[Rfam]
RNA sequence: GGCCUCCUGGUACUCACCACAAUCUACAUGCUUACUUACAAUGACUACAGCCAAGAGGAGGGAAAGUAAAUCUGCCCCAUGUACGCCUCAGCCCAGCCCUGCGCCUGGGCUACAUUGUGAAUGAGGAGACAAGG
Numbered sequence: 001g002g003c004c005u006c007c008u009g010g011u012a013c014u015c016a017c018c019a020c021a022a023u024c025u026a027c028a029u030g031c032u033u034a035c036u037u038a039c040a041a042u043g044a045c046u047a048c049a050g051c052c053a054a055g056a057g058g059a060g061g062g063a064a065a066g067u068a069a070a071u072c073u074g075c076c077c078c079a080u081g082u083a084c085g086c087c088u089c090a091g092c093c094c095a096g097c098c099c100u101g102c103g104c105c106u107g108g109g110c111u112a113c114a115u116u117g118u119g120a121a122u123g124a125g126g127a128g129a130c131a132a133g134g
Stems, first nucleotide, its partner, number of pairs: 003061006020043002026037001029034001075126002078123003090111002093108004098103001

Overview: The family of this 134-nucleotide RNA from Castor canadensis is "Small nucleolar RNA SNORA51". It scores 76 bits against the family's covariance model. The family has 9 seed sequences and 2,121 matches in Rfam 15.1. ACA51 is a member of the H/ACA class of snoRNA that guide the sites of modification of uridines to pseudouridines.